[Rfam]
Nucleotides: 067
Stems, first nucleotide, its partner, number of pairs: 004064003008060010019049010
Number, partner (000 for none) and nucleotide at each position: 001000a002000u003000a004064c005063a006062c007000g008060u009059u010058g011057a012056g013055u014054g015053g016052c017051c018000a019049g020048a021047u022046u023045a024044u025043u026042a027041u028040g029000a030000u031000c032000u033000c034000u035000g036000a037000a038000c039000a040028c041027a042026u043025a044024a045023u046022a047021a048020u049019c050000u051017g052016g053015c054014c055013a056012c057011u058010c059009a060008g061000g062006g063005u064004g065000u066000g067000a